About this RNA: Shown here is a 71-nucleotide RNA sequence from Sciurus carolinensis, a member of the family "GAIT element". For this family Rfam cites "Transcript-selective translational silencing by gamma interferon is directed by a novel structural element in the ceruloplasmin mRNA 3' untranslated region" (Sampath et al., Mol Cell Biol, 2003). Rfam classes the family as a cis-regulatory element. The family's consensus secondary structure is taken from published work. Taxonomically the source falls in Sciurus (Eukaryota, Gnathostomata, Eutheria, Sciurinae). Rfam describes the family as follows. This family represents a cis-acting element in the 3'-UTR of the ceruloplasmin (Cp) gene called gamma interferon inhibitor of translation (GAIT). The GAIT element is involved in selective translational silencing of the Cp transcript.
Nucleotides: 071
Stems, first nucleotide, its partner, number of pairs: 002070005012059001022050002026046002032042003
Number, partner (000 for none) and nucleotide at each position: 001000g002070u003069a004068u005067g006066u007000g008000a009000a010000c011000a012059u013000g014000u015000u016000g017000a018000a019000u020000a021000g022050a023049a024000c025000a026046u027045u028000a029000c030000u031000u032042u033041g034040g035000a036000g037000u038000g039000g040034c041033u042032a043000u044000a045027a046026a047000c048000a049023u050022u051000a052000a053000u054000a055000a056000a057000a058000g059012a060000c061000u062000g063000a064000a065000a066006a067005c068004a069003u070002a071000a